This 206-nucleotide RNA sequence from Naumovozyma castellii belongs to the Rfam family "Small nucleolar RNA snR32". It is annotated as an H/ACA-box small nucleolar RNA. Pairs were carried over by alignment from the consensus structure, which was predicted with WAR. The literature on the family includes a 1993 paper in Nucleic Acids Res by Balakin et al., "SnR31, snR32, and snR33: three novel, non-essential snRNAs from Saccharomyces cerevisiae". Taxonomically the source falls in Naumovozyma (Eukaryota, Opisthokonta, Dikarya, Saccharomycetes). It is one of the family's seed sequences.

RNA sequence: AACAUCAUUUUUAAAUCGCCAAUGCAAUACCAUGAUAAGGGUCUUUUUUCUUAAUUAAGAACCUGAGAGAGAUUCAUUUACUAUGUCUCUUUGAAAAAUACUUUCUUCUCGUUUGGUAUUUGUUUAGCGUAGAUUAAUAGAACGUUGCUGGGCGCCUGAUGUUGAUUCAAUAUAUGAGACAUUGGGAAUCAGCUGUAUCCACAUUU
Numbered sequence: 001a002a003c004a005u006c007a008u009u010u011u012u013a014a015a016u017c018g019c020c021a022a023u024g025c026a027a028u029a030c031c032a033u034g035a036u037a038a039g040g041g042u043c044u045u046u047u048u049u050c051u052u053a054a055u056u057a058a059g060a061a062c063c064u065g066a067g068a069g070a071g072a073u074u075c076a077u078u079u080a081c082u083a084u085g086u087c088u089c090u091u092u093g094a095a096a097a098a099u100a101c102u103u104u105c106u107u108c109u110c111g112u113u114u115g116g117u118a119u120u121u122g123u124u125u126a127g128c129g130u131a132g133a134u135u136a137a138u139a140g141a142a143c144g145u146u147g148c149u150g151g152g153c154g155c156c157u158g159a160u161g162u163u164g165a166u167u168c169a170a171u172a173u174a175u176g177a178g179a180c181a182u183u184g185g186g187a188a189u190c191a192g193c194u195g196u197a198u199c200c201a202c203a204u205u206u
Base pairs, nucleotide, nucleotide: 017129018128019127026120027119028118029117030116031115032114038064039063040062044058045057065105066104067103068102069101071087072086073085140199141198142196143195144194155186156185159182160181161180162179163178166177167176